Rfam assigns this 78-nucleotide RNA from Schistosoma haematobium to the family "mir-3492 microRNA precursor family".
RNA sequence: AGCUUUUCGAAUUCGUGCAGAAAUUUCGUCAGACACCAACCCAUUAGGGCUGAUCAGACUUCUAAGAUAAGUGAAGUA
Numbered sequence: 001a002g003c004u005u006u007u008c009g010a011a012u013u014c015g016u017g018c019a020g021a022a023a024u025u026u027c028g029u030c031a032g033a034c035a036c037c038a039a040c041c042c043a044u045u046a047g048g049g050c051u052g053a054u055c056a057g058a059c060u061u062c063u064a065a066g067a068u069a070a071g072u073g074a075a076g077u078a
Stems, first nucleotide, its partner, number of pairs: 002077005008071001011068003016064002020061002024058003028054003

The family has 2 seed sequences and 21,496 matches in Rfam 15.1. Pairs were carried over by alignment from the consensus structure, which was predicted with RNAalifold.